[Rfam]
Shown here is a 73-nucleotide RNA sequence from Neosynechococcus sphagnicola, a member of the family "Cyano-1 RNA". Taxonomically the source falls in Neosynechococcus sphagnicola (Bacteria, Bacillati, Cyanobacteriota, Cyanophyceae). It scores 44 bits against the family's covariance model. Pairs were carried over by alignment from the consensus structure, which is taken from published work.
RNA sequence: CCCAGUGUGAGGAGUAAUUCGGAAGAAAUAGCCCCUGGGGUCGAAACAUGGUCAGACUCCCAGGGGCUUUUGC
Numbered sequence: 001c002c003c004a005g006u007g008u009g010a011g012g013a014g015u016a017a018u019u020c021g022g023a024a025g026a027a028a029u030a031g032c033c034c035c036u037g038g039g040g041u042c043g044a045a046a047c048a049u050g051g052u053c054a055g056a057c058u059c060c061c062a063g064g065g066g067c068u069u070u071u072g073c
Stems, first nucleotide, its partner, number of pairs: 030068010040057003